[Rfam]
RNA sequence: UAAAAAAGGCAGAGGUAGCGAAAGCUUGAGAAAUACUCUUAGAACCUGAUCUUGGUAAUGCAAGCGUAGGAAGUCCUAACAUAUUUUAA
Numbered sequence: 001u002a003a004a005a006a007a008g009g010c011a012g013a014g015g016u017a018g019c020g021a022a023a024g025c026u027u028g029a030g031a032a033a034u035a036c037u038c039u040u041a042g043a044a045c046c047u048g049a050u051c052u053u054g055g056u057a058a059u060g061c062a063a064g065c066g067u068a069g070g071a072a073g074u075c076c077u078a079a080c081a082u083a084u085u086u087u088a089a
Stems, first nucleotide, its partner, number of pairs: 006077001008075003011039004016033001017026003045070004051064004
The record is an 89-nucleotide sequence from Spiroplasma sp. TIUS-1, which matches "TPP riboswitch aptamer (THI element)" in Rfam. Pairs were carried over by alignment from the consensus structure, which is taken from published work. The source organism's lineage runs through Bacteria, Bacillati, Mollicutes, Entomoplasmatales and Spiroplasma.